[Rfam]
RNA sequence: CCACCCCCUAGCUUUGAUCAGGCAAAAAGCGGAGACCUUCACCGCCUGGGGUGGUACUUCAUGAAGG
Numbered sequence: 001c002c003a004c005c006c007c008c009u010a011g012c013u014u015u016g017a018u019c020a021g022g023c024a025a026a027a028a029g030c031g032g033a034g035a036c037c038u039u040c041a042c043c044g045c046c047u048g049g050g051g052u053g054g055u056a057c058u059u060c061a062u063g064a065a066g067g
Stems, first nucleotide, its partner, number of pairs: 001054007011023004029045004036067005
This 67-nucleotide sequence from Nitrosomonas oligotropha belongs to the Rfam family "int-alpA RNA". The family's consensus secondary structure is taken from published work. A search with the family's covariance model found it, with a score of 44 bits.